RNA: LOOT RNA
RNA sequence: CACCUAACCCUGCUGCUUGCAGUAGGUAUGGUGUGAAAUCGCGCAAUACAGUAACCCCGUUAUCAGGGCGUAUUGCGCGUUGCGUAGGGAAACCUGCGUAUGAGCCGCAAGGCUCA
Numbered sequence: 001c002a003c004c005u006a007a008c009c010c011u012g013c014u015g016c017u018u019g020c021a022g023u024a025g026g027u028a029u030g031g032u033g034u035g036a037a038a039u040c041g042c043g044c045a046a047u048a049c050a051g052u053a054a055c056c057c058c059g060u061u062a063u064c065a066g067g068g069c070g071u072a073u074u075g076c077g078c079g080u081u082g083c084g085u086a087g088g089g090a091a092a093c094c095u096g097c098g099u100a101u102g103a104g105c106c107g108c109a110a111g112g113c114u115c116a
Base pairs, nucleotide, nucleotide: 001033002032003031004030009026010025011024012023013022014021015020040079041078042077043076044075045074046073047072048071049070056068057067058066081100082099083098084097085096086095087094088093101116102115103114104113105112106111